Rfam assigns this 132-nucleotide sequence from Bacillus pseudomycoides to the family "Group II catalytic intron D1-D4-4".
Pairs were carried over by alignment from the consensus structure.
Group II introns are found in rRNA, tRNA and mRNA of organelles in fungi, plants and protists, and also in mRNA in bacteria.
Lineage of the source: Bacteria > Bacillati > Bacillota > Caryophanales > Bacillus.
The literature on the family includes a 2001 paper in EMBO J by Chu et al., "Control of branch-site choice by a group II intron".

[Rfam]
Nucleotides: 132
Stems, first nucleotide, its partner, number of pairs: 015038005046083004050075005059066002093111001116132003
Number, partner (000 for none) and nucleotide at each position: 001000u002000u003000a004000c005000u006000g007000g008000u009000g010000a011000a012000a013000g014000u015038c016037u017036a018035g019034g020000u021000a022000a023000g024000a025000a026000c027000c028000a029000a030000c031000u032000c033000g034019c035018c036017u037016a038015g039000u040000a041000g042000c043000u044000g045000a046083u047082a048081g049080g050075c051074a052073a053072c054071u055000a056000g057000u058000g059066g060065a061000g062000a063000a064000a065060u066059u067000c068000u069000a070000a071054a072053g073052u074051u075050g076000a077000a078000g079000c080049c081048c082047u083046g084000g085000g086000a087000g088000a089000a090000a091000a092000a093111u094000g095000u096000u097000g098000a099000g100000u101000a102000a103000a104000a105000u106000g107000u108000a109000c110000a111093a112000a113000a114000a115000a116132u117131a118130g119000a120000g121000a122000a123000u124000u125000c126000a127000g128000c129000u130118u131117u132116a